[Rfam]
RNA sequence: UAUUGGUAAGUACUUUAUACUUAUAUAUAGCCGUAAUUGGACGACUGUUUCUACCCAAUACCGUAAUAUUGGUCUAUAAGUAAAAAAUUGUGUUUA
Dot-bracket structure: .................((((((((...((.(((......))).))........((((((......))))))..))))))))..............
RNA: Purine riboswitch aptamer